[Rfam]
RNA sequence: AAAAUCACCCAAACACUGGCACUGACUUGUAAUAGUAAAUGGGGUGGUGUAAGUGCUAUUUGUUGGGGUAGUUUUA
Numbered sequence: 001a002a003a004a005u006c007a008c009c010c011a012a013a014c015a016c017u018g019g020c021a022c023u024g025a026c027u028u029g030u031a032a033u034a035g036u037a038a039a040u041g042g043g044g045u046g047g048u049g050u051a052a053g054u055g056c057u058a059u060u061u062g063u064u065g066g067g068g069u070a071g072u073u074u075u076a
Stems, first nucleotide, its partner, number of pairs: 004072002007069004013063003018057006025050002
RNA: miR-430 microRNA precursor family